[Rfam]
RNA sequence: UCAAAACUAGCCACUUAUCUUUUUAAUUAGUUCUUAGUAUGUUAAAAUUUUCUAAGAACCAAUUUGAAAAUGACAAGUGACUAGUUUUGG
Numbered sequence: 001u002c003a004a005a006a007c008u009a010g011c012c013a014c015u016u017a018u019c020u021u022u023u024u025a026a027u028u029a030g031u032u033c034u035u036a037g038u039a040u041g042u043u044a045a046a047a048u049u050u051u052c053u054a055a056g057a058a059c060c061a062a063u064u065u066g067a068a069a070a071u072g073a074c075a076a077g078u079g080a081c082u083a084g085u086u087u088u089g090g
Stems, first nucleotide, its partner, number of pairs: 002089009012079005018073002021070004025064004030059008
RNA: MIR6288 microRNA precursor family